[Rfam]
RNA sequence: AAAGUUUUAGGCCUUCUCUUCCUGGUUCUUCCCAGAGUCAGGAAAAGCUAGGUUGAAAGGGCAAAAAAAAGAAAAA
Numbered sequence: 001a002a003a004g005u006u007u008u009a010g011g012c013c014u015u016c017u018c019u020u021c022c023u024g025g026u027u028c029u030u031c032c033c034a035g036a037g038u039c040a041g042g043a044a045a046a047g048c049u050a051g052g053u054u055g056a057a058a059g060g061g062c063a064a065a066a067a068a069a070a071g072a073a074a075a076a
Stems, first nucleotide, its partner, number of pairs: 014059002017056002021052005029044004
The family of this 76-nucleotide RNA from Aotus nancymaae is "mir-320 microRNA precursor family". The base pairs follow the family's consensus structure, which was predicted with RNAalifold. Rfam links the family to the GO terms RISC complex, cellular response to glucose stimulus and long-term synaptic potentiation. A reference for the family is Berezikov et al. (2006), "Many novel mammalian microRNA candidates identified by extensive cloning and RAKE analysis", Genome Res. The family has 38 seed sequences and 659 matches in Rfam 15.1.